[Rfam]
RNA: FMN riboswitch aptamer (RFN element)
Nucleotides: 215
Base pairs, nucleotide, nucleotide: 003213005211006210007209008208009207010206017029018028019027031195032194033185034184035151036150037149038148154161155160165181166180167179168178169177187198188197189196
Number, partner (000 for none) and nucleotide at each position: 001000a002000a003213u004000u005211g006210u007209c008208u009207u010206c011000a012000g013000g014000g015000c016000a017029g018028g019027g020000u021000g022000u023000a024000a025000u026000u027019c028018c029017c030000g031195a032194c033185c034184g035151g036150c037149g038148g039000u040000g041000a042000c043000a044000g045000a046000c047000g048000a049000g050000a051000c052000g053000a054000u055000u056000u057000u058000u059000u060000g061000a062000u063000g064000a065000g066000a067000a068000u069000a070000g071000g072000u073000a074000g075000c076000a077000a078000g079000u080000c081000g082000a083000u084000g085000a086000u087000a088000a089000u090000g091000c092000g093000u094000g095000g096000a097000u098000a099000u100000a101000u102000c103000a104000a105000g106000a107000c108000a109000a110000a111000c112000u113000a114000a115000c116000g117000u118000c119000c120000u121000a122000g123000c124000a125000a126000c127000a128000a129000a130000a131000a132000a133000g134000a135000g136000a137000c138000u139000g140000u141000c142000u143000g144000a145000a146000g147000u148038c149037c150036g151035u152000g153000a154161g155160c156000g157000c158000a159000a160155g161154c162000u163000g164000a165181u166180g167179u168178g169177g170000u171000g172000c173000g174000a175000u176000u177169c178168c179167a180166c181165a182000a183000c184034c185033g186000a187198c188197a189196g190000u191000a192000a193000a194032g195031u196189c197188u198187g199000g200000a201000u202000g203000g204000g205000a206010g207009a208008a209007g210006a211005c212000c213003a214000a215000u